Shown here is a 71-nucleotide RNA sequence from Crypturellus soui, a member of the family "tRNA". NCBI's taxonomy places the organism under Eukaryota, Theropoda, Aves, Tinamiformes, Crypturellus. The base pairs follow the family's consensus structure, which is taken from published work.
[Rfam]
RNA sequence: UAGGAAAUAAUAUAAUGGAAGUAUAAGGAGUUUUGAUCUCCUUAGUGUGGGUUCGACUCCCACUUUUCUAU
Numbered sequence: 001u002a003g004g005a006a007a008u009a010a011u012a013u014a015a016u017g018g019a020a021g022u023a024u025a026a027g028g029a030g031u032u033u034u035g036a037u038c039u040c041c042u043u044a045g046u047g048u049g050g051g052u053u054c055g056a057c058u059c060c061c062a063c064u065u066u067u068c069u070a071u
Stems, first nucleotide, its partner, number of pairs: 001070007010024004026042005047063005
The family's RNA type in Rfam is transfer RNA.